[Rfam]
Nucleotides: 299
Base pairs, nucleotide, nucleotide: 001045002044003043004023005022006021007020008019009018010017011016028042029041030040047297048296049295050294051293052292053291054290059286061284062283063282067276068275069274070273071272072271073270078269079268080267081266082265083264084263086261087260088259092256093255094254095253096252098250102249103248104247105246106245107244108243109242110238111237113236114235115234116233117232119229120228122226123225124224125223126222127221128167129166130165131164133162134161135160137158138157139156140155141154142153143152144151145150168174169173176219177218178217179216180215186211187210188209189208194203195202196201
Number, partner (000 for none) and nucleotide at each position: 001045g002044c003043c004023g005022g006021g007020c008019g009018c010017c011016g012000u013000g014000g015000c016011u017010g018009g019008c020007g021006c022005c023004u024000g025000u026000a027000a028042u029041c030040c031000a032000a033000g034000c035000g036000c037000c038000g039000g040030g041029g042028a043003g044002g045001c046000u047297g048296a049295g050294g051293c052292u053291g054290g055000c056000g057000g058000a059286c060000g061284g062283c063282u064000u065000g066000a067276g068275c069274c070273c071272g072271g073270g074000g075000g076000u077000u078269c079268u080267g081266g082265g083264c084263u085000g086261c087260g088259g089000c090000g091000c092256g093255c094254u095253g096252u097000g098250c099000c100000g101000a102249g103248c104247g105246g106245g107244c108243g109242u110238c111237c112000g113236c114235g115234c116233u117232a118000a119229g120228g121000c122226c123225g124224g125223c126222a127221u128167c129166g130165a131164u132000a133162u134161g135160g136000a137158g138157u139156c140155c141154c142153c143152c144151g145150g146000g147000g148000a149000g150145c151144c152143g153142g154141g155140g156139g157138g158137c159000c160135c161134c162133a163000g164131g165130u166129c167128g168174c169173c170000u171000a172000a173169g174168g175000a176219g177218g178217g179216g180215u181000g182000a183000a184000c185000c186211g187210g188209c189208c190000c191000a192000g193000g194203c195202c196201g197000g198000g199000a200000a201196c202195g203194g204000a205000g206000c207000a208189g209188g210187c211186c212000a213000a214000a215180g216179c217178u218177c219176c220000c221127g222126u223125g224124c225123c226122g227000c228120u229119c230000a231000g232117u233116a234115g235114c236113g237111g238110g239000a240000u241000g242109g243108c244107g245106c246105c247104u248103g249102u250098g251000a252096a253095c254094a255093g256092c257000g258000c259088c260087c261086g262000g263084a264083g265082c266081u267080c268079a269078g270073c271072c272071c273070g274069g275068g276067c277000g278000a279000c280000a281000c282063a283062g284061c285000g286059g287000g288000a289000c290054c291053c292052a293051g294050u295049c296048u297047c298000u299000u
This 299-nucleotide RNA from Nothoprocta ornata belongs to the Rfam family "Metazoan signal recognition particle RNA". The organism belongs to Nothoprocta, within Eukaryota. Rfam links the family to the GO terms SRP-dependent cotranslational protein targeting to membrane, signal sequence recognition and signal recognition particle, endoplasmic reticulum targeting. Its Rfam clan is "SRP clan". The base pairs follow the family's consensus structure, which is taken from published work. It is annotated as a non-coding RNA gene. Rfam's curators write: The signal recognition particle (SRP) is a universally conserved ribonucleoprotein. The family has 91 seed sequences and 383,523 matches in Rfam 15.1.